[Rfam]
RNA sequence: AAGCAAUAAAUUUUAAAACUUCGUAUAACUCCAAUAAUAUGGUUUGGAGGUUUCUACCAGGAGCCAAUAAUUCCUGAUUACGAAGAAUACCCAGCGGUAU
Numbered sequence: 001a002a003g004c005a006a007u008a009a010a011u012u013u014u015a016a017a018a019c020u021u022c023g024u025a026u027a028a029c030u031c032c033a034a035u036a037a038u039a040u041g042g043u044u045u046g047g048a049g050g051u052u053u054c055u056a057c058c059a060g061g062a063g064c065c066a067a068u069a070a071u072u073c074c075u076g077a078u079u080a081c082g083a084a085g086a087a088u089a090c091c092c093a094g095c096g097g098u099a100u
Stems, first nucleotide, its partner, number of pairs: 019085007029049006058076006
Rfam assigns this 100-nucleotide sequence from Clostridium sp. BL8 to the family "Purine riboswitch aptamer". The match comes from Rfam's covariance-model search (78 bits). Rfam links the family to the GO term purine nucleobase biosynthetic process.